[Rfam]
RNA sequence: GGUGAUAAAUUGUGUCGCGUAAUAGACGCAGCGGACCCGGGGGCAGUACCCGGCGGUUCCACCACAUGCCUCGUUCCGGGUCACAAGGCUGGACGGGGUGUCUGACGGGGCCGAACUAGGAUCGACGUGUGUUCAAAGGCGAUAUUUUUACCCGGCCCGAGUAAGCCGUGAAACUGUUCAAAACUCAUAAGUGCCAACGAUAACGAAGCACUCGCCAUUGCAGCGUAA
Numbered sequence: 001g002g003u004g005a006u007a008a009a010u011u012g013u014g015u016c017g018c019g020u021a022a023u024a025g026a027c028g029c030a031g032c033g034g035a036c037c038c039g040g041g042g043g044c045a046g047u048a049c050c051c052g053g054c055g056g057u058u059c060c061a062c063c064a065c066a067u068g069c070c071u072c073g074u075u076c077c078g079g080g081u082c083a084c085a086a087g088g089c090u091g092g093a094c095g096g097g098g099u100g101u102c103u104g105a106c107g108g109g110g111c112c113g114a115a116c117u118a119g120g121a122u123c124g125a126c127g128u129g130u131g132u133u134c135a136a137a138g139g140c141g142a143u144a145u146u147u148u149u150a151c152c153c154g155g156c157c158c159g160a161g162u163a164a165g166c167c168g169u170g171a172a173a174c175u176g177u178u179c180a181a182a183a184c185u186c187a188u189a190a191g192u193g194c195c196a197a198c199g200a201u202a203a204c205g206a207a208g209c210a211c212u213c214g215c216c217a218u219u220g221c222a223g224c225g226u227a228a
Stems, first nucleotide, its partner, number of pairs: 001152005015142004027131003031128003037053005054113007153168004
Rfam assigns this 228-nucleotide RNA sequence from Sphingobium sp. C100 to the family "permuted transfer-messenger RNA". The family's RNA type in Rfam is non-coding RNA gene. About the family: Bacterial tmRNA, also known as 10Sa RNA or SsrA, is named for its dual tRNA and mRNA-like properties. Its role is to liberate the mRNA from a stalled ribosome. To accomplish this part of the tmRNA is used as a reading frame that ends in a translation stop signal. The family's consensus secondary structure is taken from published work. It scores 131 bits against the family's covariance model.